[Rfam]
RNA sequence: GGCUGGGCGCAGUGGUUUAUCGAUCUCUUCCCUGCCUUGUGCUCACCCAGGUGGUGGUUGAUUUCUUGGGAGAUGUUUCCUUGUUGCAGCAGAGAUAACAACGCUGGAAUCGAUCGAUAAACCUCUGCAUCCAGCU
Numbered sequence: 001g002g003c004u005g006g007g008c009g010c011a012g013u014g015g016u017u018u019a020u021c022g023a024u025c026u027c028u029u030c031c032c033u034g035c036c037u038u039g040u041g042c043u044c045a046c047c048c049a050g051g052u053g054g055u056g057g058u059u060g061a062u063u064u065c066u067u068g069g070g071a072g073a074u075g076u077u078u079c080c081u082u083g084u085u086g087c088a089g090c091a092g093a094g095a096u097a098a099c100a101a102c103g104c105u106g107g108a109a110u111c112g113a114u115c116g117a118u119a120a121a122c123c124u125c126u127g128c129a130u131c132c133a134g135c136u
Base pairs, nucleotide, nucleotide: 003134004133005132006131007130009128010127011126012125014123015122016121017120018119019118020117021116022115023114024113025112028109029108030107031106034104035103037101038100039099
This 136-nucleotide RNA sequence from Eragrostis curvula belongs to the Rfam family "MIR162_2 microRNA precursor family". Clan: MIR167 microRNA precursor clan. The family has 5 seed sequences and 43 matches in Rfam 15.1.